[Rfam]
RNA sequence: AGGUGUCUUCAGAGGCAGGGUGAAAUUCCCGACCGGCGGUGAAAGUCCGAGAGCUGCUAUUGUAUAUAGUGGUUGAACUGGUUCGAUUCCAGUACCGACAGUAUAGUCUGGAUAAAAGAAGAUGAGC
Numbered sequence: 001a002g003g004u005g006u007c008u009u010c011a012g013a014g015g016c017a018g019g020g021u022g023a024a025a026u027u028c029c030c031g032a033c034c035g036g037c038g039g040u041g042a043a044a045g046u047c048c049g050a051g052a053g054c055u056g057c058u059a060u061u062g063u064a065u066a067u068a069g070u071g072g073u074u075g076a077a078c079u080g081g082u083u084c085g086a087u088u089c090c091a092g093u094a095c096c097g098a099c100a101g102u103a104u105a106g107u108c109u110g111g112a113u114a115a116a117a118g119a120a121g122a123u124g125a126g127c
Stems, first nucleotide, its partner, number of pairs: 004124007018030003032107002034097002037049003045095002053073003077093005099110003
RNA: FMN riboswitch aptamer (RFN element)